[Rfam]
RNA sequence: AUUUGAUGAUGACGAGCUAUGCUAAUACUGACAUGCCACUUCCCGAGACUUUUUGGGUUGCUGGGUGUGUGUGAGUUGAAUUCAACUUCUCCAUUGUAGUCUGAAAAUG
Numbered sequence: 001a002u003u004u005g006a007u008g009a010u011g012a013c014g015a016g017c018u019a020u021g022c023u024a025a026u027a028c029u030g031a032c033a034u035g036c037c038a039c040u041u042c043c044c045g046a047g048a049c050u051u052u053u054u055g056g057g058u059u060g061c062u063g064g065g066u067g068u069g070u071g072u073g074a075g076u077u078g079a080a081u082u083c084a085a086c087u088u089c090u091c092c093a094u095u096g097u098a099g100u101c102u103g104a105a106a107a108u109g
Stems, first nucleotide, its partner, number of pairs: 001108004042057004
RNA: Small nucleolar RNA U6-53/MBII-28
Organism: Eptatretus burgeri